[Rfam]
RNA: glmS glucosamine-6-phosphate activated ribozyme aptamer
Organism: Eremococcus coleocola
RNA sequence: AAAAUUGGGAUAGCGCCAGGCCUUUGAUAAUAAAAAGGUGACGAGGAUUGAGCUUAUCGAAAGAUUCGGCGGAUGGCUCAGGGUUGUGCGAUCCUUAGGAUGAGUGAAAAAAGUAAGUGUGAGCUUAUAACAGAGACUCGUUUAAGCACCUAG
Numbered sequence: 001a002a003a004a005u006u007g008g009g010a011u012a013g014c015g016c017c018a019g020g021c022c023u024u025u026g027a028u029a030a031u032a033a034a035a036a037g038g039u040g041a042c043g044a045g046g047a048u049u050g051a052g053c054u055u056a057u058c059g060a061a062a063g064a065u066u067c068g069g070c071g072g073a074u075g076g077c078u079c080a081g082g083g084u085u086g087u088g089c090g091a092u093c094c095u096u097a098g099g100a101u102g103a104g105u106g107a108a109a110a111a112a113g114u115a116a117g118u119g120u121g122a123g124c125u126u127a128u129a130a131c132a133g134a135g136a137c138u139c140g141u142u143u144a145a146g147c148a149c150c151u152a153g
Stems, first nucleotide, its partner, number of pairs: 020039006049080005057069004081094005098143007113128006